[Rfam]
RNA sequence: UUUUUGCGCUAGGGAUCGCAGCGGCAUCCUUUUUUUGAUUUUACUCAAAAAAAGAUAUAGCGGAGAGCCCGCCUCCCG
Numbered sequence: 001u002u003u004u005u006g007c008g009c010u011a012g013g014g015a016u017c018g019c020a021g022c023g024g025c026a027u028c029c030u031u032u033u034u035u036u037g038a039u040u041u042u043a044c045u046c047a048a049a050a051a052a053a054g055a056u057a058u059a060g061c062g063g064a065g066a067g068c069c070c071g072c073c074u075c076c077c078g
Base pairs, nucleotide, nucleotide: 012070013069014068016066017065021061022060026056027055028054032051033050034049035048036047037046038045
A member of the RNA family "Flavo-1 RNA" from Haloflavibacter putidus, 78 nucleotides long. The source organism's lineage runs through Bacteria, Bacteroidota, Flavobacteriia, Flavobacteriaceae and Haloflavibacter. Rfam classes the family as a small RNA.